The family of this 123-nucleotide RNA sequence from a Thermoflexales bacterium is "azaaromatic riboswitch aptamer (yjdF RNA)".
RNA sequence: GGCAGCACGCAUAAAAACACAGGCUGGUUGGUAGUCCGGCCGCGUCGAUUGGCCCAAUCAACGAUUGACUCAAUCGAUGUCAGUAACCUCCCCUCCCGGGUGUCCGCUGCGCGCUUUGCUCCU
Numbered sequence: 001g002g003c004a005g006c007a008c009g010c011a012u013a014a015a016a017a018c019a020c021a022g023g024c025u026g027g028u029u030g031g032u033a034g035u036c037c038g039g040c041c042g043c044g045u046c047g048a049u050u051g052g053c054c055c056a057a058u059c060a061a062c063g064a065u066u067g068a069c070u071c072a073a074u075c076g077a078u079g080u081c082a083g084u085a086a087c088c089u090c091c092c093c094u095c096c097c098g099g100g101u102g103u104c105c106g107c108u109g110c111g112c113g114c115u116u117u118g119c120u121c122c123u
Base pairs, nucleotide, nucleotide: 004115005114006113008111009110010109011108022041023040024039025038026037027036042080043079044078045077046076047075048074049073050072051071052070090100091099092098
Dot-bracket structure: ...(((.((((..........((((((........))))))(((((((((((.................))))))))))).........(((.....))).......)))).)))........